[Rfam]
RNA sequence: GAAGUAAACAGAGCGCCUGGACUGCCUGCGGGCAGUUGACGAGGACCGGGCUUAUCGAAAGAUUCGGCGGAUGGCCCGGAGGUUGAUACGACCUUAAACAAGGACAAAAACAGUCUGCGAAGAUUGAACAAAUCCUUCGAGUAUCCUCCAU
Dot-bracket structure: ...................(((((((....)))))))........(((((....((((.....)))).......)))))((((((...))))))....((((........((((((....))))))........)))...)..........
Numbered sequence: 001g002a003a004g005u006a007a008a009c010a011g012a013g014c015g016c017c018u019g020g021a022c023u024g025c026c027u028g029c030g031g032g033c034a035g036u037u038g039a040c041g042a043g044g045a046c047c048g049g050g051c052u053u054a055u056c057g058a059a060a061g062a063u064u065c066g067g068c069g070g071a072u073g074g075c076c077c078g079g080a081g082g083u084u085g086a087u088a089c090g091a092c093c094u095u096a097a098a099c100a101a102g103g104a105c106a107a108a109a110a111c112a113g114u115c116u117g118c119g120a121a122g123a124u125u126g127a128a129c130a131a132a133u134c135c136u137u138c139g140a141g142u143a144u145c146c147u148c149c150a151u
Stems, first nucleotide, its partner, number of pairs: 020037007046079005055067004080094006099141001100137003111126006

Description: glmS glucosamine-6-phosphate activated ribozyme aptamer: a 151-nucleotide RNA from Catenisphaera adipataccumulans. The family's consensus secondary structure is taken from published work. Lineage of the source: Bacteria > Bacillati > Bacillota > Erysipelotrichia > Catenisphaera. Rfam describes the family as follows. This entry contains a glucosamine-6-phosphate activated ribozyme that is found in the mRNA for GlmS. GlmS is an enzyme that uses fructose-6-phosphate and glutamine to generate glucosamine-6-phosphate. It scores 83 bits against the family's covariance model. By type it is a riboswitch.